[Rfam]
RNA: c-di-AMP riboswitch aptamer (ydaO/yuaA leader)
Organism: Streptomyces scabichelini
RNA sequence: AUCCUGCCGCCGCCCGGAAUCCGCACACAACACCCGUACACGGCAGGAGCGGGGGACCCACAGGUACAACGCCUGUUCUGGUCUCUGGAACAGGCUUGGGGUAAAGCUGCGCGAAAGCGCGGCCGGGCAUCUCCAGCUCGCACCCGACAGCUCACCUCGCAGGCACCGGAGAGGAAUU
Numbered sequence: 001a002u003c004c005u006g007c008c009g010c011c012g013c014c015c016g017g018a019a020u021c022c023g024c025a026c027a028c029a030a031c032a033c034c035c036g037u038a039c040a041c042g043g044c045a046g047g048a049g050c051g052g053g054g055g056a057c058c059c060a061c062a063g064g065u066a067c068a069a070c071g072c073c074u075g076u077u078c079u080g081g082u083c084u085c086u087g088g089a090a091c092a093g094g095c096u097u098g099g100g101g102u103a104a105a106g107c108u109g110c111g112c113g114a115a116a117g118c119g120c121g122g123c124c125g126g127g128c129a130u131c132u133c134c135a136g137c138u139c140g141c142a143c144c145c146g147a148c149a150g151c152u153c154a155c156c157u158c159g160c161a162g163g164c165a166c167c168g169g170a171g172a173g174g175a176a177u178u
Base pairs, nucleotide, nucleotide: 005165006164007163008162013047014046049160050159051158052157053156054155059098060097099145100144101143107122108121109120110119125139126138127137128136